Small nucleolar RNA SNORA43: a 142-nucleotide RNA from Lipotes vexillifer. The family's consensus secondary structure was predicted with RNAfold.
RNA sequence: CCUGUCCCGAGGUGGCACAGAGCUGUCCUUUGCAACAUUCUCAUAAAAUUGGGCAAAGACGUUGGGGCGGAGAGGAAGUGGCUAUUUCUAUGCUCAGUGCUCAGAACAGUGGGCACUAAGAAUGGUUUGUAGCCGGACAUCA
Numbered sequence: 001c002c003u004g005u006c007c008c009g010a011g012g013u014g015g016c017a018c019a020g021a022g023c024u025g026u027c028c029u030u031u032g033c034a035a036c037a038u039u040c041u042c043a044u045a046a047a048a049u050u051g052g053g054c055a056a057a058g059a060c061g062u063u064g065g066g067g068c069g070g071a072g073a074g075g076a077a078g079u080g081g082c083u084a085u086u087u088c089u090a091u092g093c094u095c096a097g098u099g100c101u102c103a104g105a106a107c108a109g110u111g112g113g114c115a116c117u118a119a120g121a122a123u124g125g126u127u128u129g130u131a132g133c134c135g136g137a138c139a140u141c142a
Base pairs, nucleotide, nucleotide: 003069004068005067006066007065008064009063010062080134081133082132088125089124090123093120094119098115099114100113101112102111103110
The family's RNA type in Rfam is H/ACA-box small nucleolar RNA.
NCBI's taxonomy places the organism under Eukaryota, Chordata, Vertebrata, Theria, Lipotes.
The family has 21 seed sequences and 492 matches in Rfam 15.1.